[Rfam]
RNA sequence: AACUAUGACUCAACCUUCUGAGGGUCAUGAGAGCGGUGCGAAAGCAUAACGCUAGUCCGGUUUGGGCGACACUGUCAAAAUGCGGGGACUCCCUAAAGCAUUCACUACUAAGCACGACUCGAAAGCGUCGUGUGGCCGAGCUAAUAGCCCUGGGUAGAGUAACAACGUGAAUGAUGGACCAAUGGGUAAUCCGCAGCCAAGUCCUACGGGCCAUCGAGCCUAUGGAUGCAGUUCAACGACUAGACGGCAGUGGGUGCGGAAACGCGCUUAAGGUAUAGUCUACUCCUCUCGCGAAAGCAGAGG
Numbered sequence: 001a002a003c004u005a006u007g008a009c010u011c012a013a014c015c016u017u018c019u020g021a022g023g024g025u026c027a028u029g030a031g032a033g034c035g036g037u038g039c040g041a042a043a044g045c046a047u048a049a050c051g052c053u054a055g056u057c058c059g060g061u062u063u064g065g066g067c068g069a070c071a072c073u074g075u076c077a078a079a080a081u082g083c084g085g086g087g088a089c090u091c092c093c094u095a096a097a098g099c100a101u102u103c104a105c106u107a108c109u110a111a112g113c114a115c116g117a118c119u120c121g122a123a124a125g126c127g128u129c130g131u132g133u134g135g136c137c138g139a140g141c142u143a144a145u146a147g148c149c150c151u152g153g154g155u156a157g158a159g160u161a162a163c164a165a166c167g168u169g170a171a172u173g174a175u176g177g178a179c180c181a182a183u184g185g186g187u188a189a190u191c192c193g194c195a196g197c198c199a200a201g202u203c204c205u206a207c208g209g210g211c212c213a214u215c216g217a218g219c220c221u222a223u224g225g226a227u228g229c230a231g232u233u234c235a236a237c238g239a240c241u242a243g244a245c246g247g248c249a250g251u252g253g254g255u256g257c258g259g260a261a262a263c264g265c266g267c268u269u270a271a272g273g274u275a276u277a278g279u280c281u282a283c284u285c286c287u288c289u290c291g292c293g294a295a296a297g298c299a300g301a302g303g
Stems, first nucleotide, its partner, number of pairs: 002025003006021001033045002070252005076246001081195006091186003196232002201227004209220003236281001238280005254267005289300001291298002
This 303-nucleotide RNA sequence from Dacryopinax primogenitus belongs to the Rfam family "Group I catalytic intron". Rfam's curators write: Group I catalytic introns are large self-splicing ribozymes. They catalyse their own excision from mRNA, tRNA and rRNA precursors in a wide range of organisms. The core secondary structure consists of 9 paired regions (P1-P9). These fold to essentially two domains - the P4-P6 domain (formed from the stacking of P5, P4, P6 and P6a helices) and the P3-P9 domain (formed from the P8, P3, P7 and P9 helices). NCBI's taxonomy places the organism under Eukaryota, Fungi, Dikarya, Dacrymycetaceae, Dacryopinax.